[Rfam]
RNA sequence: ACAAGCGGUGGCGAUGGAGUUCGCCCUUAACCGCUGUCCCUCCGCCGUCGGCCCUCGCCGGCGGGCUUGCUGAACCGGACAGAUGAUGACUCCUGGCAGGCG
Numbered sequence: 001a002c003a004a005g006c007g008g009u010g011g012c013g014a015u016g017g018a019g020u021u022c023g024c025c026c027u028u029a030a031c032c033g034c035u036g037u038c039c040c041u042c043c044g045c046c047g048u049c050g051g052c053c054c055u056c057g058c059c060g061g062c063g064g065g066c067u068u069g070c071u072g073a074a075c076c077g078g079a080c081a082g083a084u085g086a087u088g089a090c091u092c093c094u095g096g097c098a099g100g101c102g
Stems, first nucleotide, its partner, number of pairs: 010025004016093006034082006
This 102-nucleotide RNA from Acidobacteria bacterium AB60 belongs to the Rfam family "Fluoride riboswitch aptamer (crcB RNA motif)". The organism belongs to Acidobacteriota, within Bacteria. The match comes from Rfam's covariance-model search (40 bits).